[Rfam]
RNA: mir-9256 microRNA precursor family
RNA sequence: AUAGACACUUAGUGGCCAGAUUAUUAUGAUCUCUGAAUGCAUAAUAAUCUGGCCACUCAAUGUCUAU
Numbered sequence: 001a002u003a004g005a006c007a008c009u010u011a012g013u014g015g016c017c018a019g020a021u022u023a024u025u026a027u028g029a030u031c032u033c034u035g036a037a038u039g040c041a042u043a044a045u046a047a048u049c050u051g052g053c054c055a056c057u058c059a060a061u062g063u064c065u066a067u
Base pairs, nucleotide, nucleotide: 004064005063006062007061009059011057012056013055014054015053016052017051019049020048021047022046023045024044025043026042027041028040